[Rfam]
RNA sequence: AGAAGCUGGUUUCACGUGGUGGUUUAGACGUGUCCCUGUUCCUCUAGCACCACAUGAAAUCAGUGCUCU
Numbered sequence: 001a002g003a004a005g006c007u008g009g010u011u012u013c014a015c016g017u018g019g020u021g022g023u024u025u026a027g028a029c030g031u032g033u034c035c036c037u038g039u040u041c042c043u044c045u046a047g048c049a050c051c052a053c054a055u056g057a058a059a060u061c062a063g064u065g066c067u068c069u
Stems, first nucleotide, its partner, number of pairs: 001069003005064010016053006025046004
This 69-nucleotide RNA sequence from Austrofundulus limnaeus belongs to the Rfam family "mir-29 microRNA precursor family". It scores 63 bits against the family's covariance model. Gene Ontology terms of the family: RISC complex and gene silencing by miRNA. For this family Rfam cites "microRNAs: tiny regulators with great potential" (Ambros, Cell, 2001). This family represents the microRNA (miRNA) precursors mir-29. Rfam 15.1 lists 3,328 matches to the family in 787 species.